This 108-nucleotide RNA sequence from Cytobacillus solani belongs to the Rfam family "BsrF". The family's RNA type in Rfam is small RNA. Pairs were carried over by alignment from the consensus structure, which was predicted with WAR. The organism belongs to Cytobacillus, within Bacteria.
[Rfam]
RNA sequence: GCGAUGAGCUAAUUGCGUAAGCCGAUGGACAGUCCUUCAAAGGAAAUGCACGAAUGUGGCGUGCAGUCAUCGCCGCAAUACGUAAAAAGACGCCUUAUUGGCGUCUUU
Numbered sequence: 001g002c003g004a005u006g007a008g009c010u011a012a013u014u015g016c017g018u019a020a021g022c023c024g025a026u027g028g029a030c031a032g033u034c035c036u037u038c039a040a041a042g043g044a045a046a047u048g049c050a051c052g053a054a055u056g057u058g059g060c061g062u063g064c065a066g067u068c069a070u071c072g073c074c075g076c077a078a079u080a081c082g083u084a085a086a087a088a089g090a091c092g093c094c095u096u097a098u099u100g101g102c103g104u105c106u107u108u
Stems, first nucleotide, its partner, number of pairs: 013078005023072004028068003033042001047065002050062003086108009